[Rfam]
RNA sequence: GGGCAGGAUAGGUGAAGUAGGCCCACCAACAAGUUGAUGGUUCCUAUUUCACUCGUCCUUUAUUCGCACCUUCGGGCUCAACGGUCCCCUGCUCUACGAG
Numbered sequence: 001g002g003g004c005a006g007g008a009u010a011g012g013u014g015a016a017g018u019a020g021g022c023c024c025a026c027c028a029a030c031a032a033g034u035u036g037a038u039g040g041u042u043c044c045u046a047u048u049u050c051a052c053u054c055g056u057c058c059u060u061u062a063u064u065c066g067c068a069c070c071u072u073c074g075g076g077c078u079c080a081a082c083g084g085u086c087c088c089c090u091g092c093u094c095u096a097c098g099a100g
Stems, first nucleotide, its partner, number of pairs: 001094007012052006019045003023040003027036001029034001055086001057084002066077002069075002
Dot-bracket structure: (((((((....((((((.(((.(((.(.(....).).)))..))).))))))..(.((.......((.((...)))).....)).).)))))))......
The family of this 100-nucleotide RNA from Vibrio antiquarius is "traJ-II RNA". Taxonomically the source falls in Vibrio (Bacteria, Pseudomonadati, Gammaproteobacteria, Vibrionaceae).